The family of this 129-nucleotide RNA sequence from Rhinolophus ferrumequinum is "Small nucleolar RNA SNORA42/SNORA80 family". Taxonomically the source falls in Rhinolophus (Eukaryota, Deuterostomia, Craniata, Dipnotetrapodomorpha). Rfam describes the family as follows. The members of this family belong to the H/ACA class of snoRNAs that guide the sites of modification of uridines to pseudouridines. Human ACA42 (SNORA42) was cloned from HeLa cells by immunoprecipitation with anti-GAR1 antibody. Its is predicted to guide the pseudouridylation of residues U109 and U572 of 18S rRNA. ACA42 shares the same host gene with ACA26, ACA46, ACA50. This family also includes mammalian snoRNA ACA67 (SNORA80) which was identified by computational screening and its expression in mouse experimentally verified by Northern blot and primer extension analysis. ACA67 is proposed to guide the pseudouridylation of the same 18S rRNA residues as ACA42. Rfam 15.1 lists 1,535 matches to the family in 183 species. Rfam links the family to the GO terms nucleolus and RNA processing.
RNA sequence: GCAGAGGUUUGGAUUUAUGGCAGGCCUGUCCCCCUGGGCCUCUCAUAGUGCCCCAUGCCAGAGCAAAUUGUGGCUCCGAACCAUUGUUUGGCCUCAUAAGCUGCAGGCACUGAAGUGGGUUGCACAGUG
Numbered sequence: 001g002c003a004g005a006g007g008u009u010u011g012g013a014u015u016u017a018u019g020g021c022a023g024g025c026c027u028g029u030c031c032c033c034c035u036g037g038g039c040c041u042c043u044c045a046u047a048g049u050g051c052c053c054c055a056u057g058c059c060a061g062a063g064c065a066a067a068u069u070g071u072g073g074c075u076c077c078g079a080a081c082c083a084u085u086g087u088u089u090g091g092c093c094u095c096a097u098a099a100g101c102u103g104c105a106g107g108c109a110c111u112g113a114a115g116u117g118g119g120u121u122g123c124a125c126a127g128u129g
Base pairs, nucleotide, nucleotide: 001058002057003056006052007051008050015048016047017046018045019044020043022041023040024039025037026036071122072121073120074119075118076117082112083111087107088106089103090102091101092100094098